[Rfam]
RNA sequence: GGUCCGAUGCCACGUCGACGGUAGCUCACGAGCGUUGACCGACGAUGCUAUGAUUGGACCAAAAACGAAAUCUUUCGCCUUCUGAUAGGAACCUGUGGAUCUGAAUUUUUUUAGUUGGUCUACGGAGCCGUUUUCGGCGAUUACAUUC
Numbered sequence: 001g002g003u004c005c006g007a008u009g010c011c012a013c014g015u016c017g018a019c020g021g022u023a024g025c026u027c028a029c030g031a032g033c034g035u036u037g038a039c040c041g042a043c044g045a046u047g048c049u050a051u052g053a054u055u056g057g058a059c060c061a062a063a064a065a066c067g068a069a070a071u072c073u074u075u076c077g078c079c080u081u082c083u084g085a086u087a088g089g090a091a092c093c094u095g096u097g098g099a100u101c102u103g104a105a106u107u108u109u110u111u112u113a114g115u116u117g118g119u120c121u122a123c124g125g126a127g128c129c130g131u132u133u134u135c136g137g138c139g140a141u142u143a144c145a146u147u148c
Stems, first nucleotide, its partner, number of pairs: 002059007009051001013047005020040003024033003075140005088129002093125003097121005
Rfam assigns this 148-nucleotide RNA from Acer yangbiense to the family "Small nucleolar RNA snoR2/U65". Rfam links the family to the GO terms RNA processing and nucleolus. The family is grouped with related families in Rfam's "SNORA65 clan". A search with the family's covariance model found it, with a score of 136 bits. The family has 11 seed sequences and 908 matches in Rfam 15.1. The base pairs follow the family's consensus structure, which was predicted with WAR.